[Rfam]
RNA sequence: UUUGUUAAGAAGAAACAGCCGUUUCUCACCUUACAGUGUAGCUAGUAAGGUUGUGUGAAUCCAGUUCUAGUAUGUCUAGUGUUGUAUUCAAAGGACGGCUUAUGCCGUCCUUUUUUAUAUAU
Number, nucleotide and partner (000 for none) at each position: 001u000002u000003u000004g000005u000006u000007a000008a000009g000010a000011a026012g025013a024014a023015a022016c021017a000018g000019c000020c000021g016022u015023u014024u013025c012026u011027c000028a051029c050030c049031u000032u000033a046034c045035a043036g042037u000038g000039u000040a000041g000042c036043u035044a000045g034046u033047a000048a000049g030050g029051u028052u000053g000054u000055g000056u000057g000058a000059a000060u000061c000062c000063a000064g000065u000066u000067c000068u000069a000070g000071u000072a000073u000074g000075u000076c000077u000078a000079g000080u000081g000082u000083u000084g000085u000086a000087u000088u000089c000090a000091a000092a000093g000094g109095a108096c107097g106098g105099c104100u000101u000102a000103u000104g099105c098106c097107g096108u095109c094110c000111u000112u000113u000114u000115u000116u000117a000118u000119a000120u000121a000122u000

A member of the RNA family "Ribosomal protein L20 leader" from Clostridium aciditolerans, 122 nucleotides long.
Taxonomically the source falls in Clostridium (Bacteria, Bacillota, Clostridia, Clostridiaceae).
Gene Ontology term of the family: regulation of gene expression.
For this family Rfam cites "Diverse mechanisms for regulating ribosomal protein synthesis in Escherichia coli" (Zengel and Lindahl, Prog Nucleic Acid Res Mol Biol, 1994).